[Rfam]
RNA sequence: CCCCCGCUCGCUUCACAACGGAUCGUCCGGCACGUACCUGCCGGUGAAGGAGAAGAAA
Numbered sequence: 001c002c003c004c005c006g007c008u009c010g011c012u013u014c015a016c017a018a019c020g021g022a023u024c025g026u027c028c029g030g031c032a033c034g035u036a037c038c039u040g041c042c043g044g045u046g047a048a049g050g051a052g053a054a055g056a057a058a
Stems, first nucleotide, its partner, number of pairs: 009050001011049005027044006